[Rfam]
RNA: SAM (S-adenosyl methionine) riboswitch aptamer
RNA sequence: CGUCAAGAGUUCCAGCGCAUAGCCCCGGCUUGCUGGACGGCAACCCUCCACCGCGUGGGGUGCCCCGGGUGAGGACAAGGUCGUCGACCGAAUGGUCGUCGACAAGCGCGGGGC
Numbered sequence: 001c002g003u004c005a006a007g008a009g010u011u012c013c014a015g016c017g018c019a020u021a022g023c024c025c026c027g028g029c030u031u032g033c034u035g036g037a038c039g040g041c042a043a044c045c046c047u048c049c050a051c052c053g054c055g056u057g058g059g060g061u062g063c064c065c066c067g068g069g070u071g072a073g074g075a076c077a078a079g080g081u082c083g084u085c086g087a088c089c090g091a092a093u094g095g096u097c098g099u100c101g102a103c104a105a106g107c108g109c110g111g112g113g114c
Stems, first nucleotide, its partner, number of pairs: 002076003009038001011037006021030002039064003044060003049055001080103004085098005